[Rfam]
RNA sequence: CAGUUACCCCCGCAAACCUGGAGCGAUCCAGCGACGCAAAGCUACAGGGACUUCCCCCGAAGUCAGCCAGCUACCUGA
Numbered sequence: 001c002a003g004u005u006a007c008c009c010c011c012g013c014a015a016a017c018c019u020g021g022a023g024c025g026a027u028c029c030a031g032c033g034a035c036g037c038a039a040a041g042c043u044a045c046a047g048g049g050a051c052u053u054c055c056c057c058c059g060a061a062g063u064c065a066g067c068c069a070g071c072u073a074c075c076u077g078a
Base pairs, nucleotide, nucleotide: 012037013036018031019030020029021028022027040072041071042070043069047068048067049064050063051062052061053060054059
Rfam assigns this 78-nucleotide sequence from Oxalobacteraceae bacterium IMCC9480 to the family "c-di-GMP-I riboswitch aptamer". About the family: GEMM was predicted in a large-scale screen for bacterial structured RNA regulatory elements.